Shown here is a 184-nucleotide RNA from Halobacillus sp. BAB-2008, a member of the family "Lysine riboswitch aptamer". The match comes from Rfam's covariance-model search (114 bits). Rfam describes the family as follows. Riboswitches are metabolite binding domains within certain messenger RNAs that serve as precision sensors for their corresponding targets.
RNA sequence: CGGUGAGGUAGAGGCGCAGACAUCAUGAGUAGUCAAUGGGAGUAUGACAAGCGAGGAUCAUUGGUGAAGGGGGUGUCUGCCGAAGUGUAAGACAGCGAGUCGGGCUGUUUAACGCUGGUGUACAUCUGAACAGGAGAUACACUGUCAUGCAUGCUUUUUGGGUGCAUGGAGCGCUACUGAUCGA
Numbered sequence: 001c002g003g004u005g006a007g008g009u010a011g012a013g014g015c016g017c018a019g020a021c022a023u024c025a026u027g028a029g030u031a032g033u034c035a036a037u038g039g040g041a042g043u044a045u046g047a048c049a050a051g052c053g054a055g056g057a058u059c060a061u062u063g064g065u066g067a068a069g070g071g072g073g074u075g076u077c078u079g080c081c082g083a084a085g086u087g088u089a090a091g092a093c094a095g096c097g098a099g100u101c102g103g104g105c106u107g108u109u110u111a112a113c114g115c116u117g118g119u120g121u122a123c124a125u126c127u128g129a130a131c132a133g134g135a136g137a138u139a140c141a142c143u144g145u146c147a148u149g150c151a152u153g154c155u156u157u158u159u160g161g162g163u164g165c166a167u168g169g170a171g172c173g174c175u176a177c178u179g180a181u182c183g184a
Stems, first nucleotide, its partner, number of pairs: 007178005016080009032065008084116005090110006117143006125135003145169007

Taxonomically the source falls in Halobacillus (Bacteria, Bacillota, Bacilli, Bacillaceae).